[Rfam]
RNA: Small nucleolar RNA snoR8a
RNA sequence: GAGUUAGCAAUAAUUAUGAAAAUAAUUACUCAUCCUGACUUACUCAAUUUGGGCAUAACAAAUCUCUUAUUACACCUAUAAAAUCUGAGCUAC
Numbered sequence: 001g002a003g004u005u006a007g008c009a010a011u012a013a014u015u016a017u018g019a020a021a022a023u024a025a026u027u028a029c030u031c032a033u034c035c036u037g038a039c040u041u042a043c044u045c046a047a048u049u050u051g052g053g054c055a056u057a058a059c060a061a062a063u064c065u066c067u068u069a070u071u072a073c074a075c076c077u078a079u080a081a082a083a084u085c086u087g088a089g090c091u092a093c
Base pairs, nucleotide, nucleotide: 003093004092006091007090